A member of the RNA family "Small Cajal body specific RNA ncR26" from Strongyloides venezuelensis, 66 nucleotides long. The family's RNA type in Rfam is small Cajal body RNA. Pairs were carried over by alignment from the consensus structure, which was predicted with RNAfold. A search with the family's covariance model found it, with a score of 37 bits. Rfam links the family to the GO terms RNA processing, Cajal body and nucleolus. Rfam 15.1 lists 19 matches to the family in 16 species. NCBI's taxonomy places the organism under Eukaryota, Tylenchina, Strongyloidoidea, Strongyloididae, Strongyloides.
RNA sequence: AUAGACAAAUUGAUUUUAAAGCUUCAUACAAAUAACUUUUUUGGUUAAUGUGAAGUUUUUUUCUUU
Number, nucleotide and partner (000 for none) at each position: 001a000002u000003a000004g000005a000006c000007a000008a000009a000010u000011u000012g063013a062014u000015u000016u000017u000018a059019a058020a057021g056022c000023u053024u048025c000026a046027u000028a000029c044030a000031a042032a041033u000034a039035a000036c000037u000038u000039u034040u000041u032042u031043g000044g029045u000046u026047a000048a024049u000050g000051u000052g000053a023054a000055g000056u021057u020058u019059u018060u000061u000062u013063c012064u000065u000066u000